[Rfam]
RNA sequence: CAGCAGGAGUCAGUCCUGCCGGGGUAGAAGUCAGAGGCCCCGUAGCUUGGAUAGCAGGGUGGCGGGAAACCAAGACUCUGAAGCCUAUCGACAGGCAUUUCCUAGGGGAAUGCGCGAGUCAUCGGGCCGUAACAAAA
Numbered sequence: 001c002a003g004c005a006g007g008a009g010u011c012a013g014u015c016c017u018g019c020c021g022g023g024g025u026a027g028a029a030g031u032c033a034g035a036g037g038c039c040c041c042g043u044a045g046c047u048u049g050g051a052u053a054g055c056a057g058g059g060u061g062g063c064g065g066g067a068a069a070c071c072a073a074g075a076c077u078c079u080g081a082a083g084c085c086u087a088u089c090g091a092c093a094g095g096c097a098u099u100u101c102c103u104a105g106g107g108g109a110a111u112g113c114g115c116g117a118g119u120c121a122u123c124g125g126g127c128c129g130u131a132a133c134a135a136a137a
Stems, first nucleotide, its partner, number of pairs: 020042005050089005055080006064071002096112006114130003
Group II catalytic intron D1-D4-4: a 137-nucleotide RNA sequence from Paraburkholderia sp. BL10I2N1.
Rfam 15.1 lists 840 matches to the family in 506 species.
It scores 116 bits against the family's covariance model.
NCBI's taxonomy places the organism under Bacteria, Pseudomonadati, Burkholderiales, Burkholderiaceae, Paraburkholderia.
Its family is annotated with Group II intron splicing in the Gene Ontology.
Group II introns are found in rRNA, tRNA and mRNA of organelles in fungi, plants and protists, and also in mRNA in bacteria.
The base pairs follow the family's consensus structure.
On this family, see Bonen and Vogel, Trends Genet 2001: "The ins and outs of group II introns".